[Rfam]
RNA sequence: GAUAUGCACUUUUGUACGUCGCUUUGGAUAAAAGCGUCUGCGAAAUAAAUGUAA
Numbered sequence: 001g002a003u004a005u006g007c008a009c010u011u012u013u014g015u016a017c018g019u020c021g022c023u024u025u026g027g028a029u030a031a032a033a034g035c036g037u038c039u040g041c042g043a044a045a046u047a048a049a050u051g052u053a054a
Stems, first nucleotide, its partner, number of pairs: 013043001014041003020036006

This 54-nucleotide RNA belongs to the Rfam family "UnaL2 LINE 3' element". Rfam's curators put it in the seed alignment. The eel long interspersed element (LINE) UnaL2 and its partner short interspersed element (SINE) share a conserved 3' tail containing a stem-loop that is critical for their retrotransposition. Pairs were carried over by alignment from the consensus structure, which is taken from published work.